[Rfam]
RNA sequence: CUCUUAUCUAGAGUGGUGGAGGGACUGGCCCGAUGAAACCCGGCAACCGUAUCUGAUCAUUGAUCAGGUAAAGGUGCUAAUUCCUGCGAAACGUUGUUUCGGAAGAUGAGAG
Numbered sequence: 001c002u003c004u005u006a007u008c009u010a011g012a013g014u015g016g017u018g019g020a021g022g023g024a025c026u027g028g029c030c031c032g033a034u035g036a037a038a039c040c041c042g043g044c045a046a047c048c049g050u051a052u053c054u055g056a057u058c059a060u061u062g063a064u065c066a067g068g069u070a071a072a073g074g075u076g077c078u079a080a081u082u083c084c085u086g087c088g089a090a091a092c093g094u095u096g097u098u099u100c101g102g103a104a105g106a107u108g109a110g111a112g
Stems, first nucleotide, its partner, number of pairs: 001112008013041001015040003021031003025086001027084002042078004047074002050070007082104001087101006

This 112-nucleotide sequence from Anoxynatronum buryatiense belongs to the Rfam family "SAM riboswitch aptamer (S box leader)". Rfam links the family to the GO term regulation of gene expression. It scores 90 bits against the family's covariance model.